[Rfam]
The family of this 123-nucleotide sequence from Streptomyces sp. DJ is "Streptomyces-metH RNA".
It scores 79 bits against the family's covariance model.
The source organism's lineage runs through Bacteria, Actinomycetota, Actinomycetes, Streptomycetaceae and Streptomyces.
Rfam classes the family as a small RNA.

RNA sequence: CCGUCCCAAUGCGUGGAACCCCCUCGGGCUCCUCCGGCCCUGCCUAUAGCCUGGCCGGGUGCGCGCCCGGUGCCACGAGGUGCGCAAAGCCGACAGCCGUCGCACUCAGGGAGUACUUCCAUG
Numbered sequence: 001c002c003g004u005c006c007c008a009a010u011g012c013g014u015g016g017a018a019c020c021c022c023c024u025c026g027g028g029c030u031c032c033u034c035c036g037g038c039c040c041u042g043c044c045u046a047u048a049g050c051c052u053g054g055c056c057g058g059g060u061g062c063g064c065g066c067c068c069g070g071u072g073c074c075a076c077g078a079g080g081u082g083c084g085c086a087a088a089g090c091c092g093a094c095a096g097c098c099g100u101c102g103c104a105c106u107c108a109g110g111g112a113g114u115a116c117u118u119c120c121a122u123g
Stems, first nucleotide, its partner, number of pairs: 060086004065081003089103002092101003